c-di-GMP-I riboswitch aptamer: a 102-nucleotide RNA sequence from Lysinibacillus sphaericus. About the family: GEMM was predicted in a large-scale screen for bacterial structured RNA regulatory elements.
[Rfam]
RNA sequence: AAUAGAUAAAGGCAAACUAUCCGAAAGGGUAGGACGCAAAGCCUAGGGUCUAAGGUGAAGAGAAAUGAGUAUUUUUCAAACUAUGAUCGCCUGGUUACCAUU
Numbered sequence: 001a002a003u004a005g006a007u008a009a010a011g012g013c014a015a016a017c018u019a020u021c022c023g024a025a026a027g028g029g030u031a032g033g034a035c036g037c038a039a040a041g042c043c044u045a046g047g048g049u050c051u052a053a054g055g056u057g058a059a060g061a062g063a064a065a066u067g068a069g070u071a072u073u074u075u076u077c078a079a080a081c082u083a084u085g086a087u088c089g090c091c092u093g094g095u096u097a098c099c100a101u102u
Stems, first nucleotide, its partner, number of pairs: 012037002017032006040096004045092003048087003055081002